[Rfam]
RNA sequence: AAUGCAAUGAUGAUAUUGAGGAUUCUGGCAAUGGCGACAUCAGUUGCAUUGAGCUUUCAAUCCAAAAAAAUGACUUCUCUUUCCACCGAGCAUU
Numbered sequence: 001a002a003u004g005c006a007a008u009g010a011u012g013a014u015a016u017u018g019a020g021g022a023u024u025c026u027g028g029c030a031a032u033g034g035c036g037a038c039a040u041c042a043g044u045u046g047c048a049u050u051g052a053g054c055u056u057u058c059a060a061u062c063c064a065a066a067a068a069a070a071u072g073a074c075u076u077c078u079c080u081u082u083c084c085a086c087c088g089a090g091c092a093u094u
Stems, first nucleotide, its partner, number of pairs: 001094005
RNA: Small nucleolar RNA Z152/R70/R12/
Organism: Leersia perrieri